[Rfam]
A member of the RNA family "U7 small nuclear RNA" from Aotus nancymaae, 61 nucleotides long. Lineage of the source: Eukaryota > Teleostomi > Theria > Aotidae > Aotus. It scores 56 bits against the family's covariance model. Pairs were carried over by alignment from the consensus structure, which was predicted with PFOLD.
RNA sequence: UAGUGUUAUAGCUCUUUUAGAAUUUGUCUAGCAGGUUUGCUUUUUUUCAGCAGAAACCUCC
Numbered sequence: 001u002a003g004u005g006u007u008a009u010a011g012c013u014c015u016u017u018u019a020g021a022a023u024u025u026g027u028c029u030a031g032c033a034g035g036u037u038u039g040c041u042u043u044u045u046u047u048c049a050g051c052a053g054a055a056a057c058c059u060c061c
Stems, first nucleotide, its partner, number of pairs: 034058005040053002043050002